[Rfam]
Nucleotides: 227
Stems, first nucleotide, its partner, number of pairs: 001227002004224011016212014031197003037191004042186005050178013066164001069161003072157001074155001080147004087142003091138002093132001095130001097128005103122001108116001
Number, partner (000 for none) and nucleotide at each position: 001227u002226g003000a004224c005223c006222a007221u008220a009219g010218a011217a012216u013215a014214a015000c016212u017211u018210a019209u020208u021207c022206u023205g024204u025203g026202g027201c028200c029199a030000c031197u032196u033195u034000g035000a036000g037191u038190u039189a040188c041000a042186a043185u044184a045183g046182u047000u048000a049000c050178u051177a052176u053175g054174u055173u056172a057171a058170u059169u060168u061167a062166c063000g064000a065000g066164a067000c068000u069161g070160c071159a072157g073000u074155a075000a076000c077000u078000c079000c080147u081146u082145a083144c084000u085000a086000a087142g088141u089140g090000a091138u092137u093132u094000c095130c096000u097128a098127u099126a100125a101124c102000a103122u104000u105000a106000u107000g108116g109000u110000a111000a112000a113000u114000a115000u116108c117000a118000c119000c120000g121000u122103g123000a124101g125100u126099u127098g128097u129000c130095g131000u132093a133000a134000c135000a136000c137092g138091a139000g140089u141088a142087u143000c144083g145082u146081a147080a148000a149000u150000g151000c152000a153000u154000a155074u156000u157072c158000a159071u160070g161069u162000u163000a164066u165000a166062g167061u168060a169059a170058a171057u172056u173055g174054a175053u176052a177051u178050a179000u180000a181000u182046a183045u184044u185043a186042u187000c188040g189039u190038a191037a192000a193000u194000c195033a196032a197031a198000u199029u200028g201027g202026c203025u204024a205023u206022a207021g208020a209019a210018u211017a212016a213000a214014u215013u216012a217011u218010u219009c220008u221007a222006u223005g224004g225000c226002c227001a